[Rfam]
RNA sequence: UCGGCUCCGGUUCACGCUCGCCCGUCCGAUGCGGGUGCUGGCGACCCGGCGGCC
Numbered sequence: 001u002c003g004g005c006u007c008c009g010g011u012u013c014a015c016g017c018u019c020g021c022c023c024g025u026c027c028g029a030u031g032c033g034g035g036u037g038c039u040g041g042c043g044a045c046c047c048g049g050c051g052g053c054c
Base pairs, nucleotide, nucleotide: 003054004053005052007049008048009047010046015043016042017041018040019037020036021035022034023033024032025031

Shown here is a 54-nucleotide RNA, a member of the family "L31-Actinobacteria ribosomal protein leader". The family is grouped with related families in Rfam's "Ribosomal Protein L31 Leader clan".